[Rfam]
RNA sequence: AACCGUGCAGCGAUUGGGCUGUACGAAGGGCCAAAUGGGGCCGAAGUA
Numbered sequence: 001a002a003c004c005g006u007g008c009a010g011c012g013a014u015u016g017g018g019c020u021g022u023a024c025g026a027a028g029g030g031c032c033a034a035a036u037g038g039g040g041c042c043g044a045a046g047u048a
Base pairs, nucleotide, nucleotide: 004025005024006023007022008021009020010019011018029042030041031040032039